[Rfam]
About this RNA:
The family of this 96-nucleotide sequence from Musa balbisiana is "Small nucleolar RNA snoR27". Pairs were carried over by alignment from the consensus structure, which was predicted with WAR. For this family Rfam cites "Multiple snoRNA gene clusters from Arabidopsis" (Brown et al., RNA, 2001). Rfam links the family to the GO terms RNA processing and nucleolus. The family's RNA type in Rfam is C/D-box small nucleolar RNA.
RNA sequence: AUUUGAUCAGGGAUGUGAUGUGUACAUAAUCUGCGUUAUCUUUCUGCAACUCCUUUCAAGGAAUUGAAGAUGACUAUGAUACACUGAGAUUUAUAU
Numbered sequence: 001a002u003u004u005g006a007u008c009a010g011g012g013a014u015g016u017g018a019u020g021u022g023u024a025c026a027u028a029a030u031c032u033g034c035g036u037u038a039u040c041u042u043u044c045u046g047c048a049a050c051u052c053c054u055u056u057c058a059a060g061g062a063a064u065u066g067a068a069g070a071u072g073a074c075u076a077u078g079a080u081a082c083a084c085u086g087a088g089a090u091u092u093a094u095a096u
Stems, first nucleotide, its partner, number of pairs: 001096002004093001005091003
Dot-bracket structure: ((.((((.................................................................................))).).))